[Rfam]
RNA sequence: UAUCUUUACGGGGAUGGAGUCCCCCUUGAACCGCAUGUAUUGCUGAUGACUCCUGCCUGACG
Number, nucleotide and partner (000 for none) at each position: 001u000002a000003u000004c000005u000006u000007u000008a000009c000010g025011g024012g023013g022014a000015u000016g053017g052018a051019g050020u049021c048022c013023c012024c011025c010026u000027u000028g000029a000030a000031c000032c000033g043034c042035a041036u000037g000038u000039a000040u000041u035042g034043c033044u000045g000046a000047u000048g021049a020050c019051u018052c017053c016054u000055g000056c000057c000058u000059g000060a000061c000062g000
This 62-nucleotide RNA from Desulfovibrio sp. 6_1_46AFAA belongs to the Rfam family "Fluoride riboswitch aptamer (crcB RNA motif)". Rfam links the family to the GO terms positive regulation of gene expression and response to fluoride.